[Rfam]
RNA sequence: UAUGAAACAGGGCAAAGUUUUCGAAAGAUUAUGACGCAAAGCCGUGGGUCUAAGGCAGUAUGCUAUGAUCGCCAGGUUACCAUU
Number, nucleotide and partner (000 for none) at each position: 001u000002a000003u000004g000005a000006a000007a000008c000009a000010g000011g000012g037013c036014a000015a000016a000017g032018u031019u000020u000021u028022c027023g000024a000025a000026a000027g022028a021029u000030u000031a018032u017033g000034a000035c000036g013037c012038a000039a000040a078041g077042c076043c075044g000045u074046g073047g072048g069049u068050c067051u000052a000053a000054g000055g063056c062057a061058g000059u000060a000061u057062g056063c055064u000065a000066u000067g050068a049069u048070c000071g000072c047073c046074a045075g043076g042077u041078u040079a000080c000081c000082a000083u000084u000
Notes
A member of the RNA family "c-di-GMP-I riboswitch aptamer" from Pseudobacteroides cellulosolvens, 84 nucleotides long. The base pairs follow the family's consensus structure, which is taken from published work. Taxonomically the source falls in Pseudobacteroides cellulosolvens (Bacteria, Bacillota, Eubacteriales, Oscillospiraceae).